[Rfam]
Nucleotides: 179
Stems, first nucleotide, its partner, number of pairs: 002166003007159002012154003016150004021145001024141005030136001032134002036110003040106001046102001050099001052097001060086005113131007
Number, partner (000 for none) and nucleotide at each position: 001000u002166u003165g004164a005000c006000a007159a008158c009000c010000c011000u012154g013153g014152a015000c016150a017149c018148u019147g020000a021145u022000g023000g024141c025140c026139u027138c028137u029000u030136u031000a032134u033133c034000u035000a036110c037109a038108g039000a040106g041000c042000a043000g044000g045000u046102a047000c048000a049000a050099c051000c052097c053000a054000g055000g056000c057000a058000c059000c060086g061085g062084c063083a064082g065000u066000g067000c068000a069000a070000g071000c072000u073000u074000c075000c076000g077000c078000c079000a080000c081000a082064c083063u084062g085061c086060c087000c088000c089000c090000u091000g092000c093000c094000a095000a096000c097052g098000u099050g100000c101000c102046u103000c104000c105000a106040c107000c108038c109037u110036g111000g112000c113131c114130u115129g116128g117127a118126g119125a120000g121000a122000c123000c124000a125119u126118c127117u128116c129115u130114a131113g132000a133033g134032g135000c136030g137028a138027g139026g140025g141024g142000g143000a144000g145021a146000g147019c148018a149017g150016u151000u152014u153013c154012c155000u156000u157000g158008g159007u160000c161000c162000a163000u164004u165003c166002a167000g168000u169000c170000u171000u172000u173000g174000a175000c176000c177000u178000c179000u

The family of this 179-nucleotide sequence from Apteryx australis is "TUC338". It scores 125 bits against the family's covariance model. A reference for the family is Braconi et al. (2011), "Expression and functional role of a transcribed noncoding RNA with an ultraconserved element in hepatocellular carcinoma", Proc Natl Acad Sci U S A. By type it is a cis-regulatory element. Rfam 15.1 lists 75,615 matches to the family in 527 species.